[Rfam]
RNA sequence: GCUUAUUCUCAGGGCGGGGUGAAAUUCCCCACCGGCGGUAUGGGGGGAACCCCCCGAGCCCGCGAGCGCCUGUGUUUCUCCCGCGAGCGGCACAGGGUCAGCAGAUCCGGUGAAAUGCCGGAGCCGACGGUUAGAGUCCGGAUGGAAGAGAAUACAG
Numbered sequence: 001g002c003u004u005a006u007u008c009u010c011a012g013g014g015c016g017g018g019g020u021g022a023a024a025u026u027c028c029c030c031a032c033c034g035g036c037g038g039u040a041u042g043g044g045g046g047g048a049a050c051c052c053c054c055c056g057a058g059c060c061c062g063c064g065a066g067c068g069c070c071u072g073u074g075u076u077u078c079u080c081c082c083g084c085g086a087g088c089g090g091c092a093c094a095g096g097g098u099c100a101g102c103a104g105a106u107c108c109g110g111u112g113a114a115a116u117g118c119c120g121g122a123g124c125c126g127a128c129g130g131u132u133a134g135a136g137u138c139c140g141g142a143u144g145g146a147a148g149a150g151a152a153u154a155c156a157g
Stems, first nucleotide, its partner, number of pairs: 004154007017029003031137002033126002035063004058124002066102002106122005128140003
The record is a 157-nucleotide RNA sequence from Sulfitobacter undariae, which matches "FMN riboswitch aptamer (RFN element)" in Rfam. Lineage of the source: Bacteria > Pseudomonadati > Pseudomonadota > Alphaproteobacteria > Sulfitobacter. The family's consensus secondary structure is taken from published work.